[Rfam]
This 629-nucleotide sequence from Malassezia vespertilionis belongs to the Rfam family "RNase MRP".

RNA sequence: GGGACGCGCAAAGGACCGCUUAUAAUUACAUUGCAGCCUCAUGUGUCUUGUGCAUUCUGCUGUAGGGAAAGUCCCCGGACAUUUAUUUGUGUUGGAUCCUGUACAAGGACCGGUUUGUUUGACGCGGGAAAUGCAAAUACAUUGCGACGCCACCGAUGUGCAGACAUGGUGCACGUAUGUAUGCAUCGUAGGAUUGGGGUAUCGGCUGCAUGUGGUCUGCUUGGCGGAAAGCGCGGCGUUUGAAUGGCGUCUGAGCGUGGCCAGAUGCACCGAUGAAUCUGCAUUCUGCGUUGGAUGUGUACGUCAUGUCGGCAUGGGAAACGCGUGCUUGGUGCAGUGCAUGGCUACACAUGCGCUAUCCUGGACCAACUCAUCUUAUAGUGCAUUUUUAUGCGAGGCGUGCUGCGAAGAUACGAGCGCACGCCAGACACAUAUCCAUGCACGUAAAUGACUGGCACAGGUCGUAUCGUCUUGUCCCUAGCUUAUGCGCUCCAGUGUACUGCACUUUUUUUCGCGUUGGAACACCGUGUGCUUCUGCGUCUGCACAAGCUUGUUCGUCAUUGCUAUUCUAAAGUCAUGCGGUCGCCGACGUUGGACGGUAACAGAAUGGGGCUUACUCUUGCGCGUCC
Numbered sequence: 001g002g003g004a005c006g007c008g009c010a011a012a013g014g015a016c017c018g019c020u021u022a023u024a025a026u027u028a029c030a031u032u033g034c035a036g037c038c039u040c041a042u043g044u045g046u047c048u049u050g051u052g053c054a055u056u057c058u059g060c061u062g063u064a065g066g067g068a069a070a071g072u073c074c075c076c077g078g079a080c081a082u083u084u085a086u087u088u089g090u091g092u093u094g095g096a097u098c099c100u101g102u103a104c105a106a107g108g109a110c111c112g113g114u115u116u117g118u119u120u121g122a123c124g125c126g127g128g129a130a131a132u133g134c135a136a137a138u139a140c141a142u143u144g145c146g147a148c149g150c151c152a153c154c155g156a157u158g159u160g161c162a163g164a165c166a167u168g169g170u171g172c173a174c175g176u177a178u179g180u181a182u183g184c185a186u187c188g189u190a191g192g193a194u195u196g197g198g199g200u201a202u203c204g205g206c207u208g209c210a211u212g213u214g215g216u217c218u219g220c221u222u223g224g225c226g227g228a229a230a231g232c233g234c235g236g237c238g239u240u241u242g243a244a245u246g247g248c249g250u251c252u253g254a255g256c257g258u259g260g261c262c263a264g265a266u267g268c269a270c271c272g273a274u275g276a277a278u279c280u281g282c283a284u285u286c287u288g289c290g291u292u293g294g295a296u297g298u299g300u301a302c303g304u305c306a307u308g309u310c311g312g313c314a315u316g317g318g319a320a321a322c323g324c325g326u327g328c329u330u331g332g333u334g335c336a337g338u339g340c341a342u343g344g345c346u347a348c349a350c351a352u353g354c355g356c357u358a359u360c361c362u363g364g365a366c367c368a369a370c371u372c373a374u375c376u377u378a379u380a381g382u383g384c385a386u387u388u389u390u391a392u393g394c395g396a397g398g399c400g401u402g403c404u405g406c407g408a409a410g411a412u413a414c415g416a417g418c419g420c421a422c423g424c425c426a427g428a429c430a431c432a433u434a435u436c437c438a439u440g441c442a443c444g445u446a447a448a449u450g451a452c453u454g455g456c457a458c459a460g461g462u463c464g465u466a467u468c469g470u471c472u473u474g475u476c477c478c479u480a481g482c483u484u485a486u487g488c489g490c491u492c493c494a495g496u497g498u499a500c501u502g503c504a505c506u507u508u509u510u511u512u513c514g515c516g517u518u519g520g521a522a523c524a525c526c527g528u529g530u531g532c533u534u535c536u537g538c539g540u541c542u543g544c545a546c547a548a549g550c551u552u553g554u555u556c557g558u559c560a561u562u563g564c565u566a567u568u569c570u571a572a573a574g575u576c577a578u579g580c581g582g583u584c585g586c587c588g589a590c591g592u593u594g595g596a597c598g599g600u601a602a603c604a605g606a607a608u609g610g611g612g613c614u615u616a617c618u619c620u621u622g623c624g625c626g627u628c629c
Base pairs, nucleotide, nucleotide: 002629003628004627005626006625007624008623009622010621011620014584015583016582017581018580019579031065032064033063034062035061036060037059045051046050069615070614071613073612074611075610076609485558486557487556492553494551495550496549501545502544503543513539514538515537523531524530525529586599587598588597590595
The literature on the family includes a 1993 paper in FASEB J by Schmitt et al., "Secondary structure of RNase MRP RNA as predicted by phylogenetic comparison". Lineage of the source: Eukaryota > Opisthokonta > Basidiomycota > Ustilaginomycotina > Malassezia. The family's RNA type in Rfam is ribozyme. It scores 76 bits against the family's covariance model.